A member of the RNA family "mir-1388 microRNA precursor family" from Synaphobranchus kaupii, 92 nucleotides long.
The source organism's lineage runs through Eukaryota, Deuterostomia, Teleostomi, Anguilliformes and Synaphobranchus.
The base pairs follow the family's consensus structure, which was predicted with RNAalifold.
The literature on the family includes a 2009 paper in BMC Mol Biol by Jin et al., "Characterization of bovine miRNAs by sequencing and bioinformatics analysis".
Rfam links the family to the GO terms miRNA-mediated post-transcriptional gene silencing and RISC complex.

RNA sequence: GCCAGAGUAGUGUUUCAAGGACUGUCCAACCUGAGAAUGGUGAAAAUGCGGGUCAAUCUCAGGUUUGUCAGCCCAUCAAACGCUGUCUCAAU
Dot-bracket structure: ....(((((((((((...((.(((.(.(((((((((.((..............)).))))))))).).))).))...)))))))).)))...
Numbered sequence: 001g002c003c004a005g006a007g008u009a010g011u012g013u014u015u016c017a018a019g020g021a022c023u024g025u026c027c028a029a030c031c032u033g034a035g036a037a038u039g040g041u042g043a044a045a046a047u048g049c050g051g052g053u054c055a056a057u058c059u060c061a062g063g064u065u066u067g068u069c070a071g072c073c074c075a076u077c078a079a080a081c082g083c084u085g086u087c088u089c090a091a092u
Stems, first nucleotide, its partner, number of pairs: 005089003008085008019074002022071003026067001028065009038055002
A search with the family's covariance model found it, with a score of 88 bits.